[Rfam]
Nucleotides: 232
Base pairs, nucleotide, nucleotide: 005089006088007087008086009085010084011083012082013081014080015079016078017077020045021044022043023042026039027038028037049056050055059071060070061069062068092230093229095227099220100219101218102217103216104215108196109195110194111193112192113191114190115189116188117187119184121153122152123151124150129144130143131142132141133140157181158180159179161178162177163176164175165174198208199207
Number, partner (000 for none) and nucleotide at each position: 001000g002000a003000g004000u005089u006088a007087c008086g009085g010084u011083a012082u013081g014080u015079a016078g017077c018000a019000a020045g021044g022043u023042u024000a025000a026039g027038g028037a029000c030000c031000u032000u033000a034000a035000g036000g037028u038027c039026c040000g041000g042023a043022g044021c045020c046000g047000c048000a049056g050055c051000g052000a053000a054000a055050g056049c057000g058000a059071g060070u061069c062068u063000u064000a065000a066000a067000u068062g069061g070060g071059c072000g073000u074000u075000u076000a077017g078016u079015u080014a081013c082012a083011u084010g085009c086008u087007g088006u089005a090000g091000a092230c093229c094000c095227g096000a097000a098000a099220c100219c101218g102217g103216g104215c105000g106000a107000c108196c109195u110194a111193u112192c113191c114190a115189u116188g117187g118000a119184c120000a121153g122152g123151a124150u125000g126000a127000a128000a129144c130143g131142a132141a133140a134000g135000u136000a137000a138000a139000a140133u141132u142131u143130c144129g145000c146000g147000g148000a149000g150124g151123u152122c153121c154000g155000a156000a157181c158180c159179c160000a161178c162177g163176c164175a165174c166000g167000u168000u169000g170000a171000a172000a173000a174165g175164u176163g177162c178161g179159g180158g181157g182000a183000u184119g185000a186000g187117c188116u189115g190114u191113g192112g193111a194110u195109a196108g197000c198208g199207g200000u201000g202000a203000a204000a205000u206000u207199c208198c209000a210000a211000u212000c213000g214000a215104g216103c217102c218101c219100g220099g221000a222000g223000a224000u225000a226000g227095c228000u229093g230092g231000u232000u

The family of this 232-nucleotide part of an RNA from Peptoclostridium acidaminophilum is "Bacterial large subunit ribosomal RNA". Gene Ontology terms of the family: structural constituent of ribosome and ribosome. The source organism's lineage runs through Bacteria, Bacillota, Peptoclostridiaceae, Peptoclostridium and Peptoclostridium acidaminophilum.